[Rfam]
RNA sequence: AGUGUCGACAAAGCGCCAGCCCCGGCACUCAGCCGUUGAGCUGUUUUAUAGGAAGUUUCCACAGCUAUCUUUUUUGAUACAAACUGGAGUUGGAAUUGGCUUGCUGUUACUCCUGAGUGCCGGGUGACGAGGAAGGGACUUAUCGAAAGUAUCGGCGGAUGGUCCCUCGGUGUGCCACCAUCGUGAGCCUUGCUACAAAACCUACCGGCAACGGUCGGGACAAAAGGCAAGGCGAGUGGAGAU
Numbered sequence: 001a002g003u004g005u006c007g008a009c010a011a012a013g014c015g016c017c018a019g020c021c022c023c024g025g026c027a028c029u030c031a032g033c034c035g036u037u038g039a040g041c042u043g044u045u046u047u048a049u050a051g052g053a054a055g056u057u058u059c060c061a062c063a064g065c066u067a068u069c070u071u072u073u074u075u076g077a078u079a080c081a082a083a084c085u086g087g088a089g090u091u092g093g094a095a096u097u098g099g100c101u102u103g104c105u106g107u108u109a110c111u112c113c114u115g116a117g118u119g120c121c122g123g124g125u126g127a128c129g130a131g132g133a134a135g136g137g138a139c140u141u142a143u144c145g146a147a148a149g150u151a152u153c154g155g156c157g158g159a160u161g162g163u164c165c166c167u168c169g170g171u172g173u174g175c176c177a178c179c180a181u182c183g184u185g186a187g188c189c190u191u192g193c194u195a196c197a198a199a200a201c202c203u204a205c206c207g208g209c210a211a212c213g214g215u216c217g218g219g220a221c222a223a224a225a226g227g228c229a230a231g232g233c234g235a236g237u238g239g240a241g242a243u
Stems, first nucleotide, its partner, number of pairs: 021124007029116004134167005143155004168183005187233007201218002204215004
glmS glucosamine-6-phosphate activated ribozyme aptamer: a 243-nucleotide sequence from Syntrophothermus lipocalidus.
On this family, see Winkler et al., Nature 2004: "Control of gene expression by a natural metabolite-responsive ribozyme".
The source organism's lineage runs through Bacteria, Bacillati, Syntrophomonadaceae, Syntrophothermus and Syntrophothermus lipocalidus.